[Rfam]
RNA sequence: GCUGAGGAAUGAUGACAAAAAAGGCCGAAUUGAAGUGCCUCCUGCAAGCAGUUUGCUCUCCUUGGGAGCACAGUGACAAAAACCCUUCGAAGCGAAUCGUUAGUCUGACCUCAGC
Numbered sequence: 001g002c003u004g005a006g007g008a009a010u011g012a013u014g015a016c017a018a019a020a021a022a023g024g025c026c027g028a029a030u031u032g033a034a035g036u037g038c039c040u041c042c043u044g045c046a047a048g049c050a051g052u053u054u055g056c057u058c059u060c061c062u063u064g065g066g067a068g069c070a071c072a073g074u075g076a077c078a079a080a081a082a083c084c085c086u087u088c089g090a091a092g093c094g095a096a097u098c099g100u101u102a103g104u105c106u107g108a109c110c111u112c113a114g115c
Stems, first nucleotide, its partner, number of pairs: 001115007014105003025032001034101004040095002042092001045089001047087001051071002054068001056066003072086002075083001
A member of the RNA family "Small nucleolar RNA SNORD89" from Atlantisia rogersi, 115 nucleotides long. snoRNA HBII-289 belongs to the family of C/D snoRNAs. It is the human orthologue of the mouse MBII-289 and has no identified RNA target. The family has 18 seed sequences and 642 matches in Rfam 15.1. The family's consensus secondary structure was predicted with RNAalifold. NCBI's taxonomy places the organism under Eukaryota, Vertebrata, Theropoda, Rallidae, Atlantisia.